The family of this 92-nucleotide RNA from Prunus persica is "MIR6288 microRNA precursor family". The organism belongs to Prunus, within Eukaryota. Gene Ontology terms of the family: RISC complex and miRNA-mediated post-transcriptional gene silencing. It scores 93 bits against the family's covariance model.
RNA sequence: CCAAAACUAGCCACUUGUCAUUUUUUAAUUGGUUUUUAGUGUAUUAAAUUUUUUCUAAAACCAAUUAGAAAAUGACAAGUGGCUAAUUUUGG
Numbered sequence: 001c002c003a004a005a006a007c008u009a010g011c012c013a014c015u016u017g018u019c020a021u022u023u024u025u026u027a028a029u030u031g032g033u034u035u036u037u038a039g040u041g042u043a044u045u046a047a048a049u050u051u052u053u054u055c056u057a058a059a060a061c062c063a064a065u066u067a068g069a070a071a072a073u074g075a076c077a078a079g080u081g082g083c084u085a086a087u088u089u090u091g092g
Stems, first nucleotide, its partner, number of pairs: 002091005008085029039054001